[Rfam]
RNA sequence: GAGUUCAUUCCAGUAGCGAGGUUAAGGUGCUGAGGCACUGAAGCCGAAGGGAAACCGAGUCUGAACAGGGCGAUAAGCUGCUGGAUUGAGACACGAAGCCGGGUGAUCUACCCAUGUCCAGGGUGAAGGGCAGGUAAGACUGUCUGGAGGCCCGAACCCGUCAGGGGUAAAAACCUGUGGGAUGAGGUGUGGGUAGGGGAGAAAUUCCAAUCGAACCCGGGGAUAGCUGGUU
Numbered sequence: 001g002a003g004u005u006c007a008u009u010c011c012a013g014u015a016g017c018g019a020g021g022u023u024a025a026g027g028u029g030c031u032g033a034g035g036c037a038c039u040g041a042a043g044c045c046g047a048a049g050g051g052a053a054a055c056c057g058a059g060u061c062u063g064a065a066c067a068g069g070g071c072g073a074u075a076a077g078c079u080g081c082u083g084g085a086u087u088g089a090g091a092c093a094c095g096a097a098g099c100c101g102g103g104u105g106a107u108c109u110a111c112c113c114a115u116g117u118c119c120a121g122g123g124u125g126a127a128g129g130g131c132a133g134g135u136a137a138g139a140c141u142g143u144c145u146g147g148a149g150g151c152c153c154g155a156a157c158c159c160g161u162c163a164g165g166g167g168u169a170a171a172a173a174c175c176u177g178u179g180g181g182a183u184g185a186g187g188u189g190u191g192g193g194u195a196g197g198g199g200a201g202a203a204a205u206u207c208c209a210a211u212c213g214a215a216c217c218c219g220g221g222g223a224u225a226g227c228u229g230g231u232u
Stems, first nucleotide, its partner, number of pairs: 005089003009085009020045004026039003049056002059071004092230001095227001099220006108196011119184001121153004128145006157181003162177004198208003
Bacterial large subunit ribosomal RNA: a 232-nucleotide part of an RNA from Coprothermobacter proteolyticus. NCBI's taxonomy places the organism under Bacteria, Coprothermobacterota, Coprothermobacteria, Coprothermobacteraceae, Coprothermobacter proteolyticus. The sequence is in the family's curated seed alignment. Its family is annotated with ribosome and structural constituent of ribosome in the Gene Ontology.